[Rfam]
RNA sequence: CUGAAAACAAGGCAAACCCGCCGUGAGGUGGGGACGCAAAGCUAGAGGUCUCGCACGGACGCGAGAUAGCUCGGCCGCCAGC
Numbered sequence: 001c002u003g004a005a006a007a008c009a010a011g012g013c014a015a016a017c018c019c020g021c022c023g024u025g026a027g028g029u030g031g032g033g034a035c036g037c038a039a040a041g042c043u044a045g046a047g048g049u050c051u052c053g054c055a056c057g058g059a060c061g062c063g064a065g066a067u068a069g070c071u072c073g074g075c076c077g078c079c080a081g082c
Base pairs, nucleotide, nucleotide: 012037013036017032018031019030020029021028022027041075042074043073045072046071047070048067049066050065051064052063053062054061

Shown here is an 82-nucleotide RNA from Solirubrobacter ginsenosidimutans, a member of the family "c-di-GMP-I riboswitch aptamer". It scores 60 bits against the family's covariance model. The organism belongs to Solirubrobacter, within Bacteria. The base pairs follow the family's consensus structure, which is taken from published work.